[Rfam]
RNA sequence: GUUGCGUGCCGUGACUGAUGGGGCUUCGUGGGGCACCACGGUGGGGUGGCACGCAACGGAGCGCCGACCGUCUGGGCACGUCUC
Numbered sequence: 001g002u003u004g005c006g007u008g009c010c011g012u013g014a015c016u017g018a019u020g021g022g023g024c025u026u027c028g029u030g031g032g033g034c035a036c037c038a039c040g041g042u043g044g045g046g047u048g049g050c051a052c053g054c055a056a057c058g059g060a061g062c063g064c065c066g067a068c069c070g071u072c073u074g075g076g077c078a079c080g081u082c083u084c
Stems, first nucleotide, its partner, number of pairs: 003055010015043001017072005028039004061079001063077003

ZMP/ZTP riboswitch aptamer (pfl RNA motif): an 84-nucleotide sequence from Olsenella profusa. Pairs were carried over by alignment from the consensus structure, which is taken from published work.